[Rfam]
A member of the RNA family "Glycine riboswitch aptamer" from Nitrospirillum viridazoti, 89 nucleotides long. The pairing is the family consensus, mapped onto this sequence. Gene Ontology term of the family: glycine biosynthetic process.
RNA sequence: GUGCCUCGCGCGGGAGAGCAUGGCCAAGAGCCAUCGCCGAAGGAGCAACCGCCCCGGAAUCUCUCAGGCACCCGGACCGCGCCAGGCCC
Numbered sequence: 001g002u003g004c005c006u007c008g009c010g011c012g013g014g015a016g017a018g019c020a021u022g023g024c025c026a027a028g029a030g031c032c033a034u035c036g037c038c039g040a041a042g043g044a045g046c047a048a049c050c051g052c053c054c055c056g057g058a059a060u061c062u063c064u065c066a067g068g069c070a071c072c073c074g075g076a077c078c079g080c081g082c083c084a085g086g087c088c089c
Stems, first nucleotide, its partner, number of pairs: 006084001008082006020034004036069003039065002043063003049057002